Small nucleolar RNA SNORD14: a 122-nucleotide RNA sequence from Genlisea aurea. NCBI's taxonomy places the organism under Eukaryota, Tracheophyta, Euphyllophyta, Lamiales, Genlisea.
RNA sequence: GUCCUGUGAUGAUAAUUCUAAGGCUUGUUUCUCAAAACAUUCGCAGUGGCCGACUAAGAGCUUUCGCCUUCGCCAGGCUUGAGAGCUUGUGCUGCCUAAUCCUUCCUUGGAUGUCUGAGGAU
Numbered sequence: 001g002u003c004c005u006g007u008g009a010u011g012a013u014a015a016u017u018c019u020a021a022g023g024c025u026u027g028u029u030u031c032u033c034a035a036a037a038c039a040u041u042c043g044c045a046g047u048g049g050c051c052g053a054c055u056a057a058g059a060g061c062u063u064u065c066g067c068c069u070u071c072g073c074c075a076g077g078c079u080u081g082a083g084a085g086c087u088u089g090u091g092c093u094g095c096c097u098a099a100u101c102c103u104u105c106c107u108u109g110g111a112u113g114u115c116u117g118a119g120g121a122u
Stems, first nucleotide, its partner, number of pairs: 001122004060086006
From the family's description: U14 small nucleolar RNA (U14 snoRNA) is required for early cleavages of eukaryotic precursor rRNAs. In yeasts, this molecule possess a stem-loop region (known as the Y-domain) which is essential for function. The literature on the family includes a 1996 paper in Nucleic Acids Res by Samarsky et al., "An essential domain in Saccharomyces cerevisiae U14 snoRNA is absent in vertebrates, but conserved in other yeasts". Rfam 15.1 lists 4,559 matches to the family in 936 species.